A member of the RNA family "Clostridiales-1 RNA" from Clostridiales bacterium CHKCI001, 159 nucleotides long. The match comes from Rfam's covariance-model search (85 bits).

RNA sequence: CGAAAGUCCCAGACAGCAGCCAUGAGCCAGACCGUGUUUACAUGGGAUGGCUCAUGGAUAUUGGACGGGCUGACCUGUAUAAGCAAGUAAGGCAUUUGCCUGGAUUGCGAAUAUAGGAGGGGAUGUCGAGAGUGCAAAGCACGAAGACAUCAACUUUUA
Numbered sequence: 001c002g003a004a005a006g007u008c009c010c011a012g013a014c015a016g017c018a019g020c021c022a023u024g025a026g027c028c029a030g031a032c033c034g035u036g037u038u039u040a041c042a043u044g045g046g047a048u049g050g051c052u053c054a055u056g057g058a059u060a061u062u063g064g065a066c067g068g069g070c071u072g073a074c075c076u077g078u079a080u081a082a083g084c085a086a087g088u089a090a091g092g093c094a095u096u097u098g099c100c101u102g103g104a105u106u107g108c109g110a111a112u113a114u115a116g117g118a119g120g121g122g123a124u125g126u127c128g129a130g131a132g133u134g135c136a137a138a139g140c141a142c143g144a145a146g147a148c149a150u151c152a153a154c155u156u157u158u159a
Stems, first nucleotide, its partner, number of pairs: 002158006008069003015062002018059001020057010032045005074117007083108004090101004122151006132142004
Pairs were carried over by alignment from the consensus structure, which is taken from published work.
The source organism's lineage runs through Bacteria, Bacillati, Bacillota, Clostridia and Eubacteriales.